[Rfam]
RNA sequence: GGCUCAAUGAUUGUAUGCCCAGUUUUCUGGGAGAUUUAUACGCUAUUCUGAGCUCUACAUGUGCUGAAUAUAAGAUCAUUUAUGAGAGCU
Numbered sequence: 001g002g003c004u005c006a007a008u009g010a011u012u013g014u015a016u017g018c019c020c021a022g023u024u025u026u027c028u029g030g031g032a033g034a035u036u037u038a039u040a041c042g043c044u045a046u047u048c049u050g051a052g053c054u055c056u057a058c059a060u061g062u063g064c065u066g067a068a069u070a071u072a073a074g075a076u077c078a079u080u081u082a083u084g085a086g087a088g089c090u
Stems, first nucleotide, its partner, number of pairs: 001090005
RNA: Small nucleolar RNA U54
Organism: Juglans regia